Shown here is an 89-nucleotide sequence from Hibiscus trionum, a member of the family "Small nucleolar RNA R44/J54/Z268 family". The match comes from Rfam's covariance-model search (82 bits). It is annotated as a C/D-box small nucleolar RNA. Gene Ontology terms of the family: nucleolus and RNA processing. The family's consensus secondary structure was predicted with PFOLD. The source organism's lineage runs through Eukaryota, Viridiplantae, Streptophyta, Magnoliopsida and Hibiscus.
[Rfam]
RNA sequence: UGUGCAAGUGACGAUGAAACAGACAGGGACAUCAGCACCCUUUUGGAGGAUGAUGAGUUGUCUAUCAAUGGGAAUCUCUCUGAUGCACA
Numbered sequence: 001u002g003u004g005c006a007a008g009u010g011a012c013g014a015u016g017a018a019a020c021a022g023a024c025a026g027g028g029a030c031a032u033c034a035g036c037a038c039c040c041u042u043u044u045g046g047a048g049g050a051u052g053a054u055g056a057g058u059u060g061u062c063u064a065u066c067a068a069u070g071g072g073a074a075u076c077u078c079u080c081u082g083a084u085g086c087a088c089a
Stems, first nucleotide, its partner, number of pairs: 002088005